[Rfam]
RNA sequence: GAUGGAUUCAAUACAAUCCAUUAAAAAAUAUUGUUUAGUGGAUGGAUUUAAUGAAUUUUGUA
Numbered sequence: 001g002a003u004g005g006a007u008u009c010a011a012u013a014c015a016a017u018c019c020a021u022u023a024a025a026a027a028a029u030a031u032u033g034u035u036u037a038g039u040g041g042a043u044g045g046a047u048u049u050a051a052u053g054a055a056u057u058u059u060g061u062a
Stems, first nucleotide, its partner, number of pairs: 004058005011052002015048008026036004
The family of this 62-nucleotide sequence from Medicago truncatula is "MIR5291 microRNA precursor family".
Lineage of the source: Eukaryota > fabids > Fabaceae > Hologalegina > Medicago.
It scores 54 bits against the family's covariance model.